[Rfam]
RNA sequence: AAUGAUACUUCUGCCUUGAACGCUUAUCGGCAUUGGGCAGCCCACAAGGAAUGAUGGGAUAACGCUCCUUUGGCUUGAGAACUUAUAGCCAUGGCAGCUUAU
Numbered sequence: 001a002a003u004g005a006u007a008c009u010u011c012u013g014c015c016u017u018g019a020a021c022g023c024u025u026a027u028c029g030g031c032a033u034u035g036g037g038c039a040g041c042c043c044a045c046a047a048g049g050a051a052u053g054a055u056g057g058g059a060u061a062a063c064g065c066u067c068c069u070u071u072g073g074c075u076u077g078a079g080a081a082c083u084u085a086u087a088g089c090c091a092u093g094g095c096a097g098c099u100u101a102u
Stems, first nucleotide, its partner, number of pairs: 011040005041058004059102004064098002068094001071091005